A member of the RNA family "TPP riboswitch aptamer (THI element)" from Azospirillum griseum, 100 nucleotides long. Lineage of the source: Bacteria > Pseudomonadati > Alphaproteobacteria > Azospirillaceae > Azospirillum.
[Rfam]
RNA sequence: GCCAUUGGCUUGGGGUGCCGCGCGGUCCUGUGCGCGGCUGAGAUCAGACCCAUCGAACCUGUCUGGGUAAUGCCAGCGAAGGGAGCCGUUGCAUGGUUCA
Number, nucleotide and partner (000 for none) at each position: 001g000002c000003c000004a000005u000006u088007g087008g086009c085010u084011u052012g051013g050014g049015g000016u046017g038018c037019c036020g035021c034022g033023c032024g031025g000026u000027c000028c000029u000030g000031u024032g023033c022034g021035c020036g019037g018038c017039u000040g000041a000042g000043a000044u000045c000046a016047g000048a000049c014050c013051c012052a011053u000054c000055g000056a000057a000058c082059c081060u080061g000062u000063c076064u075065g074066g073067g000068u000069a000070a000071u000072g000073c066074c065075a064076g063077c000078g000079a000080a060081g059082g058083g000084a010085g009086c008087c007088g006089u000090u000091g000092c000093a000094u000095g000096g000097u000098u000099c000100a000